Source information
The family of this 81-nucleotide RNA from Heterocephalus glaber is "mir-194 microRNA precursor family". The source organism's lineage runs through Eukaryota, Bilateria, Boreoeutheria, Hystricomorpha and Heterocephalus. Pairs were carried over by alignment from the consensus structure, which was predicted with RNAalifold. A reference for the family is Lagos-Quintana et al. (2003), "New microRNAs from mouse and human", RNA.
[Rfam]
RNA sequence: AGGUGUCACCAGGUGUAACAACAACUCCAUGUGGACCGAACACCGAGGUCCAGUGGAGCCGCUGUUACCUUUGGUGCCUAG
Numbered sequence: 001a002g003g004u005g006u007c008a009c010c011a012g013g014u015g016u017a018a019c020a021a022c023a024a025c026u027c028c029a030u031g032u033g034g035a036c037c038g039a040a041c042a043c044c045g046a047g048g049u050c051c052a053g054u055g056g057a058g059c060c061g062c063u064g065u066u067a068c069c070u071u072u073g074g075u076g077c078c079u080a081g
Stems, first nucleotide, its partner, number of pairs: 009074003015068006022061001025058006032052003